[Rfam]
RNA sequence: UGCAUGUAGGGAAAUCAGAGCUUAAAGUGUUUAUCUGCUGAGUUCUGUCACAGUGCAGAAAGUCAUUUUACUGAGCAUGCC
Dot-bracket structure: .((((((.((.(((..(..........).))).(((((...((......))...)))))...........))..)))))).

A member of the RNA family "Small nucleolar RNA SNORD71" from Sylvia atricapilla, 81 nucleotides long.
Rfam 15.1 lists 556 matches to the family in 528 species.
Its family is annotated with RNA processing and nucleolus in the Gene Ontology.
The match comes from Rfam's covariance-model search (36 bits).
snoRNA HBII-239 belongs to the family of C/D snoRNAs.It is the human orthologue of the mouse MBII-239 described and is predicted to guide 2'O-ribose methylation of 5.8S rRNA on residue U14.
Rfam classes the family as an H/ACA-box small nucleolar RNA.
On this family, see Huttenhofer et al., EMBO J 2001: "RNomics: an experimental approach that identifies 201 candidates for novel, small, non-messenger RNAs in mouse".